Rfam assigns this 192-nucleotide RNA sequence from Neobacillus vireti to the family "Lysine riboswitch aptamer".

RNA sequence: CGAUGAGGUAGAGGUCGCGGUUUUUAUCAGUAAAGCGGACGAGAUGGAAGAGACAUCCCUGACUCCGUUUGAAAGGAAAAACUGCCGAAGUGUGUUUUUCAUCUCUAGAAAAGCAUGCUGGGACUGUCUCCAAAUAGGAACAGAACUGUCACGUGAGGCUUUACCAGCCGAGCGUGUUGAGCUAUCUUUCGG
Numbered sequence: 001c002g003a004u005g006a007g008g009u010a011g012a013g014g015u016c017g018c019g020g021u022u023u024u025u026a027u028c029a030g031u032a033a034a035g036c037g038g039a040c041g042a043g044a045u046g047g048a049a050g051a052g053a054c055a056u057c058c059c060u061g062a063c064u065c066c067g068u069u070u071g072a073a074a075g076g077a078a079a080a081a082c083u084g085c086c087g088a089a090g091u092g093u094g095u096u097u098u099u100c101a102u103c104u105c106u107a108g109a110a111a112a113g114c115a116u117g118c119u120g121g122g123a124c125u126g127u128c129u130c131c132a133a134a135u136a137g138g139a140a141c142a143g144a145a146c147u148g149u150c151a152c153g154u155g156a157g158g159c160u161u162u163a164c165c166a167g168c169c170g171a172g173c174g175u176g177u178u179g180a181g182c183u184a185u186c187u188u189u190c191g192g
Stems, first nucleotide, its partner, number of pairs: 006187006017085009033070007089119012120147002124143004129138002150176005
It scores 121 bits against the family's covariance model.